[Rfam]
RNA sequence: AGAGGCCCUCUGUGGCUGGGGUAGAAUGCUUGCCUCAUCACCGUGGCAACGAAGCAAGCAUUCAGCCAGGCCACUCACGCUGCCUGC
Number, nucleotide and partner (000 for none) at each position: 001a000002g000003a000004g084005g083006c082007c000008c000009u000010c000011u000012g074013u073014g072015g071016c070017u069018g000019g000020g067021g066022u065023a000024g063025a062026a061027u060028g059029c058030u057031u056032g055033c054034c000035u000036c000037a000038u049039c000040a000041c046042c000043g000044u000045g000046g041047c000048a000049a038050c000051g000052a000053a000054g033055c032056a031057a030058g029059c028060a027061u026062u025063c024064a000065g022066c021067c020068a000069g017070g016071c015072c014073a013074c012075u000076c000077a000078c000079g000080c000081u000082g006083c005084c004085u000086g000087c000
Background: Rfam assigns this 87-nucleotide sequence from Myotis myotis to the family "mir-9195 microRNA precursor family". Gene Ontology terms of the family: miRNA-mediated post-transcriptional gene silencing and RISC complex. NCBI's taxonomy places the organism under Eukaryota, Eumetazoa, Teleostomi, Boreoeutheria, Myotis. A search with the family's covariance model found it, with a score of 93 bits.